[Rfam]
RNA sequence: GGCUCGUUAGCUCAGUUGGUAAGAGCACCACACUUAUUACUUGAUCGUGGUUGUCGUGGGUUCGAAUCCCACAUGAGCCA
Numbered sequence: 001g002g003c004u005c006g007u008u009a010g011c012u013c014a015g016u017u018g019g020u021a022a023g024a025g026c027a028c029c030a031c032a033c034u035u036a037u038u039a040c041u042u043g044a045u046c047g048u049g050g051u052u053g054u055c056g057u058g059g060g061u062u063c064g065a066a067u068c069c070c071a072c073a074u075g076a077g078c079c080a
Base pairs, nucleotide, nucleotide: 001079002078003077004076005075006074007073010026011025012024013023028050029049030048031047056072057071058070059069060068
Rfam assigns this 80-nucleotide RNA sequence from Psylliodes chrysocephalus to the family "tRNA". Its family is annotated with triplet codon-amino acid adaptor activity in the Gene Ontology. The organism belongs to Psylliodes, within Eukaryota.